The family of this 133-nucleotide RNA sequence from Helopsaltes ochotensis is "Small nucleolar RNA SNORA55". The organism belongs to Helopsaltes, within Eukaryota. ACA55 is a member of the H/ACA class of snoRNA that guide the sites of modification of uridines to pseudouridines. It is annotated as an H/ACA-box small nucleolar RNA. The base pairs follow the family's consensus structure, which was predicted with PFOLD.
RNA sequence: GCACCCGCCUCGUUCCCGUGCCUGGCUGCGUGGUGCAGGUCUGGGGGCGCUUGGUGCUACAGCACAGCAGUGGAAAUCCAGAUGGGUUCUCCUCCACUGGCAUGGGACUCAUCUCUACACCUCUGCAACACCA
Dot-bracket structure: (((((.......((((((..((...............))..)))))).....))))).........((((.(.......((((((((......(((......))).))))))))......).)))).......